[Rfam]
RNA sequence: GAGUCUAAAAGCAAAGUUCUAUUCUAUUCUAUUCUAUUCUAUUCUAGAAUAGAAUAGAAUAGAAUAGAACUUUGCUUCUAUUCUA
Numbered sequence: 001g002a003g004u005c006u007a008a009a010a011g012c013a014a015a016g017u018u019c020u021a022u023u024c025u026a027u028u029c030u031a032u033u034c035u036a037u038u039c040u041a042u043u044c045u046a047g048a049a050u051a052g053a054a055u056a057g058a059a060u061a062g063a064a065u066a067g068a069a070c071u072u073u074g075c076u077u078c079u080a081u082u083c084u085a
Base pairs, nucleotide, nucleotide: 002084003083006080007079009077010076011075012074013073014072015071016070017069018068019067020066021065023063024062025061026060027059028058029057030056031055032054034052035051037049038048039047040046
Shown here is an 85-nucleotide RNA sequence from Salarias fasciatus, a member of the family "mir-1684 microRNA precursor family".
Taxonomically the source falls in Salarias (Eukaryota, Opisthokonta, Teleostei, Acanthomorphata).
Pairs were carried over by alignment from the consensus structure, which was predicted with RNAalifold.
It scores 65 bits against the family's covariance model.